The record is a 65-nucleotide RNA from Halolamina rubra, which matches "S15-Halobacteria ribosomal protein leader" in Rfam.
The family's consensus secondary structure is taken from published work.
On this family, see Eckert and Weinberg, BMC Microbiol 2020: "Discovery of 20 novel ribosomal leader candidates in bacteria and archaea".
By type it is a cis-regulatory leader.
Taxonomically the source falls in Halolamina (Archaea, Methanobacteriati, Halobacteria, Halobacteriales).
It is one of the family's seed sequences.
RNA sequence: UUGGGAACAGCACGGCCGCAAAUCUGACUCGCUCGGACCGCCCGGGCUCGGGAUUGCGGAAGUGU
Numbered sequence: 001u002u003g004g005g006a007a008c009a010g011c012a013c014g015g016c017c018g019c020a021a022a023u024c025u026g027a028c029u030c031g032c033u034c035g036g037a038c039c040g041c042c043c044g045g046g047c048u049c050g051g052g053a054u055u056g057c058g059g060a061a062g063u064g065u
Stems, first nucleotide, its partner, number of pairs: 010065004016059006024052002031047006